RNA sequence: UGGCUCCCGGUUCACGCCCCGCGCACCCGACGUGGCGACCCGGCAGC
Numbered sequence: 001u002g003g004c005u006c007c008c009g010g011u012u013c014a015c016g017c018c019c020c021g022c023g024c025a026c027c028c029g030a031c032g033u034g035g036c037g038a039c040c041c042g043g044c045a046g047c
Stems, first nucleotide, its partner, number of pairs: 003047003007043004015037004020032002
Dot-bracket structure: ..(((.((((....((((.((.........)).))))..)))).)))
RNA: L31-Actinobacteria ribosomal protein leader
Organism: Serinibacter arcticus